[Rfam]
The family of this 181-nucleotide RNA sequence from Gracilibacillus ureilyticus is "Lysine riboswitch aptamer". The organism belongs to Gracilibacillus, within Bacteria.

RNA sequence: AGUGAGAAUAGAGGUGCAAAGACCAUUAGUAUAUAGUUGGAGGGGAUGUGACCUGUGACAACUAUUGAAAGGGGGAUUUGCCGAAGUGAUAAGAUUUGCAUCCAUCUUAAUCACUGGUCCUGCAUUGAAGAAAUGCCGGGCUGUCAUAUAGUUUUCAACUAUAUGGAGGGCUAUCUCACGC
Number, nucleotide and partner (000 for none) at each position: 001a000002g000003u000004g000005a000006g176007a000008a174009u173010a172011g171012a000013g000014g000015u000016g081017c080018a079019a078020a077021g000022a000023c074024c073025a000026u000027u000028a000029g000030u000031a000032u000033a065034u064035a063036g062037u061038u060039g059040g000041a000042g000043g000044g000045g000046a000047u000048g000049u000050g000051a000052c000053c000054u000055g000056u000057g000058a000059c039060a038061a037062c036063u035064a034065u033066u000067g000068a000069a000070a000071g000072g000073g024074g023075g000076a000077u020078u019079u018080g017081c016082c000083g000084a000085a115086g114087u113088g112089a111090u110091a108092a107093g106094a105095u104096u000097u000098g000099c000100a000101u000102c000103c000104a095105u094106c093107u092108u091109a000110a090111u089112c088113a087114c086115u085116g142117g141118u140119c139120c138121u000122g136123c135124a134125u133126u132127g000128a000129a000130g000131a000132a126133a125134u124135g123136c122137c000138g120139g119140g118141c117142u116143g000144u166145c165146a164147u163148a162149u161150a160151g000152u000153u000154u000155u000156c000157a000158a000159c000160u150161a149162u148163a147164u146165g145166g144167a000168g000169g000170g000171c011172u010173a009174u008175c000176u006177c000178a000179c000180g000181c000